[Rfam]
RNA: Plastid-rpl20 3UTR RNA
Organism: Kingdonia uniflora
RNA sequence: UAGAAUCCCCGGAGAAGGAACUCCGGGAAGGUAGAGUAGAAAUUAAUAUGAUAAAAUAAAAAUAAACGAAUACAUUUCAAU
Numbered sequence: 001u002a003g004a005a006u007c008c009c010c011g012g013a014g015a016a017g018g019a020a021c022u023c024c025g026g027g028a029a030g031g032u033a034g035a036g037u038a039g040a041a042a043u044u045a046a047u048a049u050g051a052u053a054a055a056a057u058a059a060a061a062a063u064a065a066a067c068g069a070a071u072a073c074a075u076u077u078c079a080a081u
Base pairs, nucleotide, nucleotide: 006029008027009026010025011024012023013022014021064077065076066075